[Rfam]
RNA: mir-9193 microRNA precursor family
Organism: Myotis brandtii
RNA sequence: UGUGCACCGGUGGGGUCCCUUGGCCUGGCUUGUGGGGGUCAAAACAGGCUCUCUGAUAUCCCCCAAGGGGUCCCGGAUUGUGAGAGGGCACAGGCCAGGCCAAGGGACCCCACCAGUGCACG
Numbered sequence: 001u002g003u004g005c006a007c008c009g010g011u012g013g014g015g016u017c018c019c020u021u022g023g024c025c026u027g028g029c030u031u032g033u034g035g036g037g038g039u040c041a042a043a044a045c046a047g048g049c050u051c052u053c054u055g056a057u058a059u060c061c062c063c064c065a066a067g068g069g070g071u072c073c074c075g076g077a078u079u080g081u082g083a084g085a086g087g088g089c090a091c092a093g094g095c096c097a098g099g100c101c102a103a104g105g106g107a108c109c110c111c112a113c114c115a116g117u118g119c120a121c122g
Stems, first nucleotide, its partner, number of pairs: 003120002006117001009114002012111014027096008